[Rfam]
Record summary:
Shown here is a 38-nucleotide RNA from Erwinia mallotivora, a member of the family "JUMPstart RNA". The base pairs follow the family's consensus structure, which is taken from published work. The family has 128 seed sequences and 288 matches in Rfam 15.1. The match comes from Rfam's covariance-model search (53 bits). Lineage of the source: Bacteria > Pseudomonadota > Enterobacterales > Erwiniaceae > Erwinia. The family's RNA type in Rfam is cis-regulatory element.
RNA sequence: UAGCGCACUGGCAGCUACAAGCCAGGGGCGGUAGCGUG
Number, nucleotide and partner (000 for none) at each position: 001u000002a000003g000004c000005g000006c000007a000008c025009u024010g023011g022012c021013a000014g000015c000016u000017a000018c000019a000020a000021g012022c011023c010024a009025g008026g000027g000028g000029c000030g000031g000032u000033a000034g000035c000036g000037u000038g000